[Rfam]
RNA sequence: GGCGAUAAACGGCAUCGCAAUAAGCUCUUCGGACCCGGGGGCGGUACCCGGCGCCUCCACCAGAGCGCGUCAAUCGUGUGUCGAUGGCGCGUUCCGGCGGGGGCGAAAUAGGUUCGACGGGGAGUGUAAAGGGUGUUCUUUCGCUCGGCAUGGUUCCACCGUCAUCGGGCUAAACCUAUAGUUGCCAACGACAACUAUGCUCCGGUUGCCCUUGCCGCGUAA
Number, nucleotide and partner (000 for none) at each position: 001g145002g144003c143004g142005a141006u000007a000008a000009a000010c000011g000012g000013c135014a134015u133016c132017g000018c000019a000020a000021u000022a000023a000024g000025c124026u123027c122028u000029u120030c119031g118032g000033a000034c000035c051036c050037g049038g048039g047040g000041g000042c000043g000044g000045u000046a000047c039048c038049c037050g036051g035052c105053g104054c103055c102056u101057c100058c099059a000060c000061c000062a000063g000064a000065g000066c000067g000068c000069g000070u000071c000072a000073a000074u000075c000076g000077u000078g000079u000080g000081u000082c000083g000084a000085u000086g000087g000088c000089g000090c000091g000092u000093u000094c000095c000096g000097g000098c000099g058100g057101g056102g055103g054104c053105g052106a000107a000108a000109u000110a000111g000112g000113u000114u000115c000116g000117a000118c031119g030120g029121g000122g027123a026124g025125u000126g000127u000128a000129a000130a000131g000132g016133g015134u014135g013136u000137u000138c000139u000140u000141u005142c004143g003144c002145u001146c161147g160148g159149c000150a000151u000152g000153g000154u000155u000156c000157c000158a000159c148160c147161g146162u000163c000164a000165u000166c000167g000168g000169g000170c000171u000172a000173a000174a000175c000176c000177u000178a000179u000180a000181g000182u000183u000184g000185c000186c000187a000188a000189c000190g000191a000192c000193a000194a000195c000196u000197a000198u000199g000200c000201u000202c000203c000204g000205g000206u000207u000208g000209c000210c000211c000212u000213u000214g000215c000216c000217g000218c000219g000220u000221a000222a000

permuted transfer-messenger RNA: a 222-nucleotide RNA. The family's RNA type in Rfam is non-coding RNA gene. It scores 154 bits against the family's covariance model. About the family: Bacterial tmRNA, also known as 10Sa RNA or SsrA, is named for its dual tRNA and mRNA-like properties. Its role is to liberate the mRNA from a stalled ribosome. To accomplish this part of the tmRNA is used as a reading frame that ends in a translation stop signal.